The family of this 98-nucleotide RNA sequence from Treponema denticola is "TD-2 RNA".
The source organism's lineage runs through Bacteria, Spirochaetota, Treponematales, Treponemataceae and Treponema denticola.
Rfam 15.1 lists 310 matches to the family in 11 species.
[Rfam]
Nucleotides: 098
Base pairs, nucleotide, nucleotide: 001017002016003015004014005013006012032058033057034056036055037054038053039052040051041050042049043048061094062093063092064091065090066089067088068087069086070085071084072083073082074081
Number, partner (000 for none) and nucleotide at each position: 001017c002016c003015g004014g005013a006012c007000a008000g009000g010000a011000u012006g013005u014004c015003c016002g017001g018000u019000g020000g021000u022000u023000c024000c025000a026000u027000u028000c029000u030000c031000a032058c033057g034056a035000u036055g037054u038053u039052u040051u041050g042049c043048c044000g045000u046000a047000a048043g049042g050041c051040a052039a053038a054037a055036c056034u057033c058032g059000a060000a061094g062093c063092u064091g065090a066089a067088a068087a069086a070085u071084g072083u073082a074081c075000a076000c077000g078000g079000a080000u081074g082073u083072a084071c085070a086069u087068u088067u089066u090065u091064c092063a093062g094061c095000g096000a097000g098000u